[Rfam]
RNA sequence: AGAGUAGAUAGAGGUUGCGGUUUUUAAGAGUAGAUUUGCUGAGCUAAGCACGAUGAAGCAUUUUAAAAGGAGAAGCCGCCGAAAUGGAUAGUUGAUGCUUUAAGACUAUCUUGUUGGGGUUAUGUAGAAUAUACAUAACACUGUCACGUAGUUAUUCGUGGGGAGCUAUCAUGACG
Numbered sequence: 001a002g003a004g005u006a007g008a009u010a011g012a013g014g015u016u017g018c019g020g021u022u023u024u025u026a027a028g029a030g031u032a033g034a035u036u037u038g039c040u041g042a043g044c045u046a047a048g049c050a051c052g053a054u055g056a057a058g059c060a061u062u063u064u065a066a067a068a069g070g071a072g073a074a075g076c077c078g079c080c081g082a083a084a085u086g087g088a089u090a091g092u093u094g095a096u097g098c099u100u101u102a103a104g105a106c107u108a109u110c111u112u113g114u115u116g117g118g119g120u121u122a123u124g125u126a127g128a129a130u131a132u133a134c135a136u137a138a139c140a141c142u143g144u145c146a147c148g149u150a151g152u153u154a155u156u157c158g159u160g161g162g163g164a165g166c167u168a169u170c171a172u173g174a175c176g
Stems, first nucleotide, its partner, number of pairs: 007170005017079009033064002037060004083115004087110007116142002119139008144161005150155001

Shown here is a 176-nucleotide RNA from Cellulosilyticum lentocellum, a member of the family "Lysine riboswitch aptamer". It scores 115 bits against the family's covariance model. The source organism's lineage runs through Bacteria, Bacillati, Lachnospirales, Cellulosilyticaceae and Cellulosilyticum lentocellum. Rfam's curators write: Riboswitches are metabolite binding domains within certain messenger RNAs that serve as precision sensors for their corresponding targets.